[Rfam]
This 72-nucleotide RNA sequence from Durio zibethinus belongs to the Rfam family "Small nucleolar RNA Z105".
By type it is a C/D-box small nucleolar RNA.
Its family is annotated with RNA processing and nucleolus in the Gene Ontology.
RNA sequence: AAGGCAUAAUGAGGAUAAAUUUAUGAACCAUUCUGAUUAUUGUGAUGAUCAAUUACCUCCUACUCAUUCUGA
Numbered sequence: 001a002a003g004g005c006a007u008a009a010u011g012a013g014g015a016u017a018a019a020u021u022u023a024u025g026a027a028c029c030a031u032u033c034u035g036a037u038u039a040u041u042g043u044g045a046u047g048a049u050c051a052a053u054u055a056c057c058u059c060c061u062a063c064u065c066a067u068u069c070u071g072a
Stems, first nucleotide, its partner, number of pairs: 006067002009064001028047001033044001